[Rfam]
Background:
Rfam assigns this 250-nucleotide part of an RNA from Galemys pyrenaicus to the family "Eukaryotic large subunit ribosomal RNA". Taxonomically the source falls in Galemys (Eukaryota, Craniata, Amniota, Theria). The family's consensus secondary structure is taken from published work.
RNA sequence: AGUAGUAGCAAAUAUUCAAACGAGAACUUUGAAGGCCAAAGUGGUGAAUGAUUCCAUGUGAACAGCAGUUGAACAUGGGUCAGUCGGUCCUGAGAGAUGGGCGAGCGCUGUUCCGAAGGGACGGGCGAUGGCCUCCAUUGCCCUCGGCCGAUCGAAAGGGAGGCGGGUUCAGAUCCCCGAAUCCGGAGUGGUGGAGACGGGCGCCGCGAGGCGUCCAGUGCAGUAACACGACCAAUCCCGGAGAAGCCGG
Numbered sequence: 001a002g003u004a005g006u007a008g009c010a011a012a013u014a015u016u017c018a019a020a021c022g023a024g025a026a027c028u029u030u031g032a033a034g035g036c037c038a039a040a041g042u043g044g045u046g047a048a049u050g051a052u053u054c055c056a057u058g059u060g061a062a063c064a065g066c067a068g069u070u071g072a073a074c075a076u077g078g079g080u081c082a083g084u085c086g087g088u089c090c091u092g093a094g095a096g097a098u099g100g101g102c103g104a105g106c107g108c109u110g111u112u113c114c115g116a117a118g119g120g121a122c123g124g125g126c127g128a129u130g131g132c133c134u135c136c137a138u139u140g141c142c143c144u145c146g147g148c149c150g151a152u153c154g155a156a157a158g159g160g161a162g163g164c165g166g167g168u169u170c171a172g173a174u175c176c177c178c179g180a181a182u183c184c185g186g187a188g189u190g191g192u193g194g195a196g197a198c199g200g201g202c203g204c205c206g207c208g209a210g211g212c213g214u215c216c217a218g219u220g221c222a223g224u225a226a227c228a229c230g231a232c233c234a235a236u237c238c239c240g241g242a243g244a245a246g247c248c249g250g
Stems, first nucleotide, its partner, number of pairs: 015033006034248003043233003046229001049217002054078006063071002085213002089159002094153002096112003100109003120145002164179004184208002218227002